A member of the RNA family "Lysine riboswitch aptamer" from Sporolactobacillus laevolacticus, 181 nucleotides long.
Pairs were carried over by alignment from the consensus structure, which is taken from published work.
[Rfam]
RNA sequence: UGAAGUGAUAGAGGAGCAGUCUUCAUAAGUAGGCCGCGCGAGAAGGAUGAGAUUCAUUGACCGCGGCGGAAAGGGAAUCCUGCCGAAGUCGGAAUCGGUUCAUCUCGUUUCCGGGCUGGACCUGCAUUGAACAAAUGCAGGGCUGUCACACUUGCAAAAAGUGUGGAGAACUAUCUCAGCA
Numbered sequence: 001u002g003a004a005g006u007g008a009u010a011g012a013g014g015a016g017c018a019g020u021c022u023u024c025a026u027a028a029g030u031a032g033g034c035c036g037c038g039c040g041a042g043a044a045g046g047a048u049g050a051g052a053u054u055c056a057u058u059g060a061c062c063g064c065g066g067c068g069g070a071a072a073g074g075g076a077a078u079c080c081u082g083c084c085g086a087a088g089u090c091g092g093a094a095u096c097g098g099u100u101c102a103u104c105u106c107g108u109u110u111c112c113g114g115g116c117u118g119g120a121c122c123u124g125c126a127u128u129g130a131a132c133a134a135a136u137g138c139a140g141g142g143c144u145g146u147c148a149c150a151c152u153u154g155c156a157a158a159a160a161g162u163g164u165g166g167a168g169a170a171c172u173a174u175c176u177c178a179g180c181a
Stems, first nucleotide, its partner, number of pairs: 007175005016083004022077003033067006087117003090113005096107002118144002121141008146166007